The record is a 149-nucleotide RNA sequence from Pseudokineococcus lusitanus, which matches "FMN riboswitch aptamer (RFN element)" in Rfam. The organism belongs to Pseudokineococcus, within Bacteria. The base pairs follow the family's consensus structure, which is taken from published work. Rfam links the family to the GO term FMN binding. About the family: The RFN element is a highly conserved domain that is found frequently in the 5'-untranslated regions of prokaryotic mRNAs that encode for flavin mononucleotide (FMN) biosynthesis and transport proteins.
[Rfam]
RNA sequence: GCGUGCUCCCGGGGUCGGUGCAAUUCCGAACCGGCGGUGACAGUCCGCGAACCGCGGUGACCCCGCGCCCUCCAGGCGCGACGGCCGCCACGGCCGAGCCGGUGGAACUCCGGGACCGACGGUGAGAGUCCGGAGGGGAGGCAGCACGC
Dot-bracket structure: ..(((((.((.....(((.......))).[[((((((.....[[))))...((......................................)).....((((.......)))).]])).(((.....]]))).......)).)))))..